[Rfam]
RNA: Small nucleolar RNA Z157/R69/R10
Organism: Lathyrus oleraceus
RNA sequence: CAUUGUGCAGUGACGAUACAUUUUGUGGACUAGAGUUUCUGAUGUGGGAAUCUUCACCCAGAAAUUGAUUACAAAACCCUUGGCUGUCUGAGCGCAAAUG
Dot-bracket structure: ((((((((.............................((...(.((((........))))..)...)).......................))))).)))